The family of this 371-nucleotide sequence from Mycoplasma wenyonii is "Bacterial RNase P class B".
Rfam links the family to the GO terms tRNA processing, dimeric ribonuclease P complex and ribonuclease P activity.
From the family's description: Ribonuclease P (RNase P) is a ubiquitous endoribonuclease, found in archaea, bacteria and eukarya as well as chloroplasts and mitochondria. Its best characterised activity is the generation of mature 5'-ends of tRNAs by cleaving the 5'-leader elements of precursor-tRNAs. Cellular RNase Ps are ribonucleoproteins. RNA from bacterial RNase Ps retains its catalytic activity in the absence of the protein subunit, i.e. it is a ribozyme. Isolated eukaryotic and archaeal RNase P RNA has not been shown to retain its catalytic function, but is still essential for the catalytic activity of the holoenzyme. Although the archaeal and eukaryotic holoenzyme s have a much greater protein content than the bacterial ones, the RNA cores from all the three lineages are homologous -- helices corresponding to P1, P2, P3, P4, and P10/11 are common to all cellular RNase P RNAs. Yet, there is considerable sequence variation, particularly among the eukaryotic RNAs.
It is annotated as a ribozyme.
Clan: RNaseP clan.
[Rfam]
RNA sequence: AACUGUAGGUAGCUUCUCAACUAACUAUCUUAUUGUAGUUUAGUUGAGUAAGAGGAAAGUCCAUGCUUGCAUAGUCUGAGAUGACUAUAGUGAUUGUGUGAGUAUAUAAAAGAUAAAACUCAACGGCUAGUCUGACUAGUUGAUGGCGGAGAACCUUUCUAAAUAAGCUUUACAGCUUACAUGAGUAAUUCUUUGUAAAGUGCCACAGAGACGAGCUCUAUAGAAAUAUAGAGUGUGAAACGAGGCAAACCCCGCAAGCAAGAAACCUAAAUUAUUGGUGAGGGAACUUAAGCAAAGGAAAUGAACAAUGCUUAGGAAUCAAUUAUUUGAUUAGAUUAAUUACCUACUUUGACAGAACAUGGCUUAUUGUU
Numbered sequence: 001a002a003c004u005g006u007a008g009g010u011a012g013c014u015u016c017u018c019a020a021c022u023a024a025c026u027a028u029c030u031u032a033u034u035g036u037a038g039u040u041u042a043g044u045u046g047a048g049u050a051a052g053a054g055g056a057a058a059g060u061c062c063a064u065g066c067u068u069g070c071a072u073a074g075u076c077u078g079a080g081a082u083g084a085c086u087a088u089a090g091u092g093a094u095u096g097u098g099u100g101a102g103u104a105u106a107u108a109a110a111a112g113a114u115a116a117a118a119c120u121c122a123a124c125g126g127c128u129a130g131u132c133u134g135a136c137u138a139g140u141u142g143a144u145g146g147c148g149g150a151g152a153a154c155c156u157u158u159c160u161a162a163a164u165a166a167g168c169u170u171u172a173c174a175g176c177u178u179a180c181a182u183g184a185g186u187a188a189u190u191c192u193u194u195g196u197a198a199a200g201u202g203c204c205a206c207a208g209a210g211a212c213g214a215g216c217u218c219u220a221u222a223g224a225a226a227u228a229u230a231g232a233g234u235g236u237g238a239a240a241c242g243a244g245g246c247a248a249a250c251c252c253c254g255c256a257a258g259c260a261a262g263a264a265a266c267c268u269a270a271a272u273u274a275u276u277g278g279u280g281a282g283g284g285a286a287c288u289u290a291a292g293c294a295a296a297g298g299a300a301a302u303g304a305a306c307a308a309u310g311c312u313u314a315g316g317a318a319u320c321a322a323u324u325a326u327u328u329g330a331u332u333a334g335a336u337u338a339a340u341u342a343c344c345u346a347c348u349u350u351g352a353c354a355g356a357a358c359a360u361g362g363c364u365u366a367u368u369g370u371u
Base pairs, nucleotide, nucleotide: 001371002370003369005347006346007345008344009343010342011341013052014051015050057365058364059363061362062361063360064359065358066262067261068260069259070258071088072087073086074085075084076083094257095256096255097254098253099122100121101120102119103118123144124142125141126140127139128138129137145252146251148194149193150192151191157185158184159183164179165178166177167176168175169174200250201249202246203245204244215234216233217232218231219230220229221228222227266283267282268281287316288315289314290313291312292311293310317332318331319330320329321328322327